This 105-nucleotide sequence from Pedobacter sp. BMA belongs to the Rfam family "SAM riboswitch aptamer (S box leader)".

[Rfam]
RNA sequence: UACUUAUCAAGAAAGGUGGAGGGAAUGGCCCUGUGAAACCUUAGCAACCCGCCGUAGCUGGAAAAGGUGCUAAUUCCAUCCCAAAGUUUUUGGGGUAGUUAAGUC
Numbered sequence: 001u002a003c004u005u006a007u008c009a010a011g012a013a014a015g016g017u018g019g020a021g022g023g024a025a026u027g028g029c030c031c032u033g034u035g036a037a038a039c040c041u042u043a044g045c046a047a048c049c050c051g052c053c054g055u056a057g058c059u060g061g062a063a064a065a066g067g068u069g070c071u072a073a074u075u076c077c078a079u080c081c082c083a084a085a086g087u088u089u090u091u092g093g094g095g096u097a098g099u100u101a102a103g104u105c
Base pairs, nucleotide, nucleotide: 002104003103004102005101006100008098013042014041015040016039017038021031022030023029025079026078027077028076043071044070045069046068048067049066052061053060075097080094081093082092083091084090085089

The base pairs follow the family's consensus structure, which is taken from published work.